The record is a 95-nucleotide RNA sequence from Chironomus riparius, which matches "mir-283 microRNA precursor family" in Rfam.
The family has 11 seed sequences and 98 matches in Rfam 15.1.

[Rfam]
RNA sequence: UGUGUAAUUGAAAGGUCAAUAUCAGCUGGUAAUUCUGGGUCCAAUUAAACAUUUAAAUUCCCAGGAUUUCAACUGAUAUCAACUUUCUGAUUACA
Numbered sequence: 001u002g003u004g005u006a007a008u009u010g011a012a013a014g015g016u017c018a019a020u021a022u023c024a025g026c027u028g029g030u031a032a033u034u035c036u037g038g039g040u041c042c043a044a045u046u047a048a049a050c051a052u053u054u055a056a057a058u059u060c061c062c063a064g065g066a067u068u069u070c071a072a073c074u075g076a077u078a079u080c081a082a083c084u085u086u087c088u089g090a091u092u093a094c095a
Stems, first nucleotide, its partner, number of pairs: 012086005019079007027071003032067008
The literature on the family includes a 2007 paper in Genome Res by Stark et al., "Systematic discovery and characterization of fly microRNAs using 12 Drosophila genomes".